[Rfam]
RNA sequence: UAGAAGUGCUAGGGGUGCCCUCGGGCUGAGACGUGGAAUUUCAUUCCUAAACCCUUUUACCUGAUCUGGAUAAUACCAGCGUAGGGAAGCGAUUUAAUCAUUGG
Numbered sequence: 001u002a003g004a005a006g007u008g009c010u011a012g013g014g015g016u017g018c019c020c021u022c023g024g025g026c027u028g029a030g031a032c033g034u035g036g037a038a039u040u041u042c043a044u045u046c047c048u049a050a051a052c053c054c055u056u057u058u059a060c061c062u063g064a065u066c067u068g069g070a071u072a073a074u075a076c077c078a079g080c081g082u083a084g085g086g087a088a089g090c091g092a093u094u095u096a097a098u099c100a101u102u103g104g
Stems, first nucleotide, its partner, number of pairs: 007091004011055004016049001017026003033048001035046003060085004066079004

TPP riboswitch aptamer (THI element): a 104-nucleotide RNA sequence from Clostridium oryzae. The source organism's lineage runs through Bacteria, Bacillati, Bacillota, Clostridiaceae and Clostridium.